[Rfam]
RNA: let-7 microRNA precursor family
RNA sequence: UCGGUGUGAGGUAGUAGAUUGUAUAGUUGUAGGGUAGUGUUUUUGCCCUGUAUGGAAGGUAACUAUACAAUCUAUUGCCUUCCCUGA
Number, nucleotide and partner (000 for none) at each position: 001u087002c086003g085004g084005u000006g082007u000008g081009a080010g079011g078012u077013a076014g075015u074016a073017g072018a071019u070020u069021g068022u067023a066024u065025a064026g063027u062028u000029g000030u000031a000032g048033g047034g046035u045036a000037g000038u000039g000040u000041u000042u000043u000044u000045g035046c034047c033048c032049u000050g000051u058052a000053u000054g000055g000056a000057a000058g051059g000060u000061a000062a027063c026064u025065a024066u023067a022068c021069a020070a019071u018072c017073u016074a015075u014076u013077g012078c011079c010080u009081u008082c006083c000084c004085u003086g002087a001